[Rfam]
Eukaryotic small subunit ribosomal RNA: a 595-nucleotide part of an RNA from Schistosoma mansoni. Pairs were carried over by alignment from the consensus structure, which is taken from published work. It scores 1704 bits against the family's covariance model. The source organism's lineage runs through Eukaryota, Bilateria, Trematoda, Strigeidida and Schistosoma.

RNA sequence: CAUAUGCUUGUCUCAGAGAUUAAGCCAUGCAUGUCUAAGUACAUACCUUAAAACGGUGAAACCGCGAAUGGCUCAUUAAAUCAGCUAUGGUUCCUUAGAUCGUAAACGCUACAUGGAUAACUGUAGUAAUUCUAGAGCUAAUACAUGCCUUGAAUCCCUGACCCGCAAGGGGACGGGUGCAUUUAUUAGAACAGAACCAACCGGGUGCGGCUUCGGCUGUGCCUGUUACAUUCUGUGAUGACUCUGGAUAACUUUACUGAUCGCAGUCGGCCUUGUGUCGGCGACGGAUCUUUCAAAUGUCUGCCCUAUCAAUUUGUUGGUAGGUGAUUUGCCUACCAUGAUGAUAACGGGUAACGGGGAAUCAGGGUUCGAUUCCGGAGAGGGAGCCUGAGAAAUGGCUACCACAUCCAAGGACGGCAGCAGGCGCGAAAAUUACCCACUCCCGGCACGGGGAGGUAGUGACGAAAAAUACGUAUACGGGACUCAAUUGAGGCUCCGUAAUUCGAAUGAGUACAAUUUAAAUCCUUUAACGAGGACCAAUUGGAGGGCAAGUCUGGUGCCAGCAGCCGCGGUAACUCCAGCUCCAAAAGCGUAU
Numbered sequence: 001c002a003u004a005u006g007c008u009u010g011u012c013u014c015a016g017a018g019a020u021u022a023a024g025c026c027a028u029g030c031a032u033g034u035c036u037a038a039g040u041a042c043a044u045a046c047c048u049u050a051a052a053a054c055g056g057u058g059a060a061a062c063c064g065c066g067a068a069u070g071g072c073u074c075a076u077u078a079a080a081u082c083a084g085c086u087a088u089g090g091u092u093c094c095u096u097a098g099a100u101c102g103u104a105a106a107c108g109c110u111a112c113a114u115g116g117a118u119a120a121c122u123g124u125a126g127u128a129a130u131u132c133u134a135g136a137g138c139u140a141a142u143a144c145a146u147g148c149c150u151u152g153a154a155u156c157c158c159u160g161a162c163c164c165g166c167a168a169g170g171g172g173a174c175g176g177g178u179g180c181a182u183u184u185a186u187u188a189g190a191a192c193a194g195a196a197c198c199a200a201c202c203g204g205g206u207g208c209g210g211c212u213u214c215g216g217c218u219g220u221g222c223c224u225g226u227u228a229c230a231u232u233c234u235g236u237g238a239u240g241a242c243u244c245u246g247g248a249u250a251a252c253u254u255u256a257c258u259g260a261u262c263g264c265a266g267u268c269g270g271c272c273u274u275g276u277g278u279c280g281g282c283g284a285c286g287g288a289u290c291u292u293u294c295a296a297a298u299g300u301c302u303g304c305c306c307u308a309u310c311a312a313u314u315u316g317u318u319g320g321u322a323g324g325u326g327a328u329u330u331g332c333c334u335a336c337c338a339u340g341a342u343g344a345u346a347a348c349g350g351g352u353a354a355c356g357g358g359g360a361a362u363c364a365g366g367g368u369u370c371g372a373u374u375c376c377g378g379a380g381a382g383g384g385a386g387c388c389u390g391a392g393a394a395a396u397g398g399c400u401a402c403c404a405c406a407u408c409c410a411a412g413g414a415c416g417g418c419a420g421c422a423g424g425c426g427c428g429a430a431a432a433u434u435a436c437c438c439a440c441u442c443c444c445g446g447c448a449c450g451g452g453g454a455g456g457u458a459g460u461g462a463c464g465a466a467a468a469a470u471a472c473g474u475a476u477a478c479g480g481g482a483c484u485c486a487a488u489u490g491a492g493g494c495u496c497c498g499u500a501a502u503u504c505g506a507a508u509g510a511g512u513a514c515a516a517u518u519u520a521a522a523u524c525c526u527u528u529a530a531c532g533a534g535g536a537c538c539a540a541u542u543g544g545a546g547g548g549c550a551a552g553u554c555u556g557g558u559g560c561c562a563g564c565a566g567c568c569g570c571g572g573u574a575a576c577u578c579c580a581g582c583u584c585c586a587a588a589a590g591c592g593u594a595u
Stems, first nucleotide, its partner, number of pairs: 002595007011467001013465002017460001018427001024425003028422003033065002039062002045057002072380003082303003087298002091296002097291004112147004121137002124134003157177004163171002183251005196239001198237002261284004268280004305351003312342003318338007355377004359370004382403002385400003405416001407414002433458001435457003441453005473504001475502001476500006483492003511531002513528001515527002541587006554581004563570002